This 229-nucleotide sequence from Erysipelotrichaceae bacterium RD49 belongs to the Rfam family "T-box leader". Rfam's curators write: Uncharged tRNA acts as the effector for transcription antitermination of genes in the T-box leader family. T-boxes are found upstream of many aminoacyl-tRNA synthetase genes and some amino acid biosynthetic genes usually in Gram-positive bacteria. The anticodon of a specific tRNA base pairs to a specifier sequence within the T-box motif, and the NCCA acceptor tail of the tRNA base pairs to a conserved bulge in the T-box antiterminator hairpin. By type it is a cis-regulatory leader. Rfam 15.1 lists 19,395 matches to the family in 1,923 species.

[Rfam]
RNA sequence: AAAAAAGCGAUGACAAGGACAAAUCGGAUCUGGAAGGUUUUCAGAAAGCAGCCGGGUGAUGCGAGGCUGUGGCCGAAGAUUUCGAAAUCCUCCCCUUCGAGCUGAAAGAGUGAAGGCGAGUAAUUCUUUCCGGGACAUCCCGUUAUAGAUGAAACGAUUGACUGAUCGUUGAGCGGCCGCAGUGUUGCGGCAAUUAGAGUGGUACCGCGGAUGAUUCUCCGUCUCUUGG
Numbered sequence: 001a002a003a004a005a006a007g008c009g010a011u012g013a014c015a016a017g018g019a020c021a022a023a024u025c026g027g028a029u030c031u032g033g034a035a036g037g038u039u040u041u042c043a044g045a046a047a048g049c050a051g052c053c054g055g056g057u058g059a060u061g062c063g064a065g066g067c068u069g070u071g072g073c074c075g076a077a078g079a080u081u082u083c084g085a086a087a088u089c090c091u092c093c094c095c096u097u098c099g100a101g102c103u104g105a106a107a108g109a110g111u112g113a114a115g116g117c118g119a120g121u122a123a124u125u126c127u128u129u130c131c132g133g134g135a136c137a138u139c140c141c142g143u144u145a146u147a148g149a150u151g152a153a154a155c156g157a158u159u160g161a162c163u164g165a166u167c168g169u170u171g172a173g174c175g176g177c178c179g180c181a182g183u184g185u186u187g188c189g190g191c192a193a194u195u196a197g198a199g200u201g202g203u204a205c206c207g208c209g210g211a212u213g214a215u216u217c218u219c220c221g222u223c224u225c226u227u228g229g
Base pairs, nucleotide, nucleotide: 007102008101015097016096017095018094026083027082028081031078037073038072039071048070049069050068051067052066053065105129106128107127108126109125110124111123131142132141133140176191177190178189179188180187181186196226197225198224199223207222208221209220210219211218